RNA sequence: ACGCGGGGACGACCCUGCGGCUCAAUCGAGUUUUCAAUCUGGGGACGGCCCCG
Number, nucleotide and partner (000 for none) at each position: 001a000002c019003g018004c017005g016006g015007g014008g013009a000010c000011g000012a000013c008014c007015c006016u005017g004018c003019g002020g000021c000022u000023c000024a000025a000026u000027c000028g000029a000030g000031u000032u000033u000034u000035c000036a000037a000038u000039c000040u053041g052042g051043g050044g049045a000046c000047g000048g000049c044050c043051c042052c041053g040